[Rfam]
The record is a 195-nucleotide RNA, which matches "IMES-1 RNA motif" in Rfam.
A reference for the family is Weinberg et al. (2009), "Exceptional structured noncoding RNAs revealed by bacterial metagenome analysis", Nature.
Rfam's curators put it in the seed alignment.
The family's RNA type in Rfam is non-coding RNA gene.

RNA sequence: GUAACGAGAACUGGAAAGGAACUGCAGAACCAAAGAAAGGAAACGUUACACAGGAAGAGACCUGAAGGGUGAAAGUUCAAGAGAGCUUAGCAUGCAAAAAAGCAAACUUGACCACCGAGAGUAAAAGAGAUCUUACUCAAGGAUGCAAGAGGUAAUCUCACUUUUGACACCCACAGAUCUCGAUUUAUAAAAAAA
Numbered sequence: 001g002u003a004a005c006g007a008g009a010a011c012u013g014g015a016a017a018g019g020a021a022c023u024g025c026a027g028a029a030c031c032a033a034a035g036a037a038a039g040g041a042a043a044c045g046u047u048a049c050a051c052a053g054g055a056a057g058a059g060a061c062c063u064g065a066a067g068g069g070u071g072a073a074a075g076u077u078c079a080a081g082a083g084a085g086c087u088u089a090g091c092a093u094g095c096a097a098a099a100a101a102g103c104a105a106a107c108u109u110g111a112c113c114a115c116c117g118a119g120a121g122u123a124a125a126a127g128a129g130a131u132c133u134u135a136c137u138c139a140a141g142g143a144u145g146c147a148a149g150a151g152g153u154a155a156u157c158u159c160a161c162u163u164u165u166g167a168c169a170c171c172c173a174c175a176g177a178u179c180u181c182g183a184u185u186u187a188u189a190a191a192a193a194a195a
Stems, first nucleotide, its partner, number of pairs: 001049004011040002063175002067172002077111005085103004119138005127159005146166006